[Rfam]
RNA sequence: UGGAAAUGAUGAAAUAGAGAUAAUUGGGUGUUGAAUGUUGUGUGAGUGGAAAUUUUGAAUACGUAAGUUAAGUAAUUAAUAUUUUAUAGGUACUUAGUAGAGAGUGUGUGUGCAUGUGUGUGUGCUGCUCCUGCUGGCUAUGGGAAGGGGGCGCUGACUGGUGAUGCUGAUACUGGAGUGCAUCUGAGGCUGUUGUAGAAAUUCAUGGGUUGUUGAUUACAACAUUGCCGAUGAUUAUAACCCAAGAACAGCUCACCUAAGUAGCCUAGCACCCUAAAAUCUCUGACAGGUUCAUUAAACAUGCUCCUGUGAUCUGAUCCAG
Numbered sequence: 001u002g003g004a005a006a007u008g009a010u011g012a013a014a015u016a017g018a019g020a021u022a023a024u025u026g027g028g029u030g031u032u033g034a035a036u037g038u039u040g041u042g043u044g045a046g047u048g049g050a051a052a053u054u055u056u057g058a059a060u061a062c063g064u065a066a067g068u069u070a071a072g073u074a075a076u077u078a079a080u081a082u083u084u085u086a087u088a089g090g091u092a093c094u095u096a097g098u099a100g101a102g103a104g105u106g107u108g109u110g111u112g113c114a115u116g117u118g119u120g121u122g123u124g125c126u127g128c129u130c131c132u133g134c135u136g137g138c139u140a141u142g143g144g145a146a147g148g149g150g151g152c153g154c155u156g157a158c159u160g161g162u163g164a165u166g167c168u169g170a171u172a173c174u175g176g177a178g179u180g181c182a183u184c185u186g187a188g189g190c191u192g193u194u195g196u197a198g199a200a201a202u203u204c205a206u207g208g209g210u211u212g213u214u215g216a217u218u219a220c221a222a223c224a225u226u227g228c229c230g231a232u233g234a235u236u237a238u239a240a241c242c243c244a245a246g247a248a249c250a251g252c253u254c255a256c257c258u259a260a261g262u263a264g265c266c267u268a269g270c271a272c273c274c275u276a277a278a279a280u281c282u283c284u285g286a287c288a289g290g291u292u293c294a295u296u297a298a299a300c301a302u303g304c305u306c307c308u309g310u311g312a313u314c315u316g317a318u319c320c321a322g
Base pairs, nucleotide, nucleotide: 001321002320003319004318191224192223193222194221195220196219197218198217200214201213202212204209
Small Cajal body-specific RNA 7: a 322-nucleotide RNA from Equus caballus. Rfam 15.1 lists 570 matches to the family in 531 species. The sequence is in the family's curated seed alignment. It is annotated as a small Cajal body RNA.